[Rfam]
RNA sequence: AUGUCAUCCCGUGAGGUGACGAAGACGCAGAUAUACAUAACAUUCAUUAAAAUGUGGUCAAUUGUUUUUUAAUGAAGUCUUACUCUGAGAGCCUAUUGCUGUA
Numbered sequence: 001a002u003g004u005c006a007u008c009c010c011g012u013g014a015g016g017u018g019a020c021g022a023a024g025a026c027g028c029a030g031a032u033a034u035a036c037a038u039a040a041c042a043u044u045c046a047u048u049a050a051a052a053u054g055u056g057g058u059c060a061a062u063u064g065u066u067u068u069u070u071a072a073u074g075a076a077g078u079c080u081u082a083c084u085c086u087g088a089g090a091g092c093c094u095a096u097u098g099c100u101g102u103a
Base pairs, nucleotide, nucleotide: 002021003020004019005018006017009016010015027102028101029100030099033096034095035094044075045074046073047072048071049070050069051068052067077092078091080089081088
RNA: Streptococcus sRNA SpF44